RNA: U1 spliceosomal RNA
Organism: Symbiodinium natans
RNA sequence: AAACUUACCUGGCUAGUGUUGGGCGGAGAUCCAGCAGCUCGCUCUCAUAGGGUCGAGCAGUUCACUGCACUCUGAGGCCUGUAACGCCUAAGGAGUCUCCGAUGGAGUCAUCCAUAGCAGAAUUUCUUGAGAGGCAACUAGCUUGUGAGCUGUUGCCAA
Numbered sequence: 001a002a003a004c005u006u007a008c009c010u011g012g013c014u015a016g017u018g019u020u021g022g023g024c025g026g027a028g029a030u031c032c033a034g035c036a037g038c039u040c041g042c043u044c045u046c047a048u049a050g051g052g053u054c055g056a057g058c059a060g061u062u063c064a065c066u067g068c069a070c071u072c073u074g075a076g077g078c079c080u081g082u083a084a085c086g087c088c089u090a091a092g093g094a095g096u097c098u099c100c101g102a103u104g105g106a107g108u109c110a111u112c113c114a115u116a117g118c119a120g121a122a123u124u125u126c127u128u129g130a131g132a133g134g135c136a137a138c139u140a141g142c143u144u145g146u147g148a149g150c151u152g153u154u155g156c157c158a159a
Stems, first nucleotide, its partner, number of pairs: 012118004016048003021043001023042004049089003053086001056082001060078002062075002092113003095109001097107001099104001133157004140151004